[Rfam]
RNA sequence: ACCUAGGGUAGAGGUGCUGAAAUUAUGAGUAUUUAUUCGUAGCUGGUAAGUUAAGAUGAAUAAAAAAAGGAAUUUCAGCCGAAGGAAACAAGCUGACGAGUUUGGAUUCUGGCUUUACAUAGAAUAUAUGUAAAGCUGUCACUAAUAAAAGUGGAGAGCUACAAGGUAC
Numbered sequence: 001a002c003c004u005a006g007g008g009u010a011g012a013g014g015u016g017c018u019g020a021a022a023u024u025a026u027g028a029g030u031a032u033u034u035a036u037u038c039g040u041a042g043c044u045g046g047u048a049a050g051u052u053a054a055g056a057u058g059a060a061u062a063a064a065a066a067a068a069g070g071a072a073u074u075u076c077a078g079c080c081g082a083a084g085g086a087a088a089c090a091a092g093c094u095g096a097c098g099a100g101u102u103u104g105g106a107u108u109c110u111g112g113c114u115u116u117a118c119a120u121a122g123a124a125u126a127u128a129u130g131u132a133a134a135g136c137u138g139u140c141a142c143u144a145a146u147a148a149a150a151g152u153g154g155a156g157a158g159c160u161a162c163a164a165g166g167u168a169c
Stems, first nucleotide, its partner, number of pairs: 008162004016079009032064008083110004089104006111137011139154005
Rfam assigns this 169-nucleotide RNA from Clostridium acidisoli to the family "Lysine riboswitch aptamer".
The match comes from Rfam's covariance-model search (108 bits).
NCBI's taxonomy places the organism under Bacteria, Bacillati, Bacillota, Eubacteriales, Clostridium acidisoli.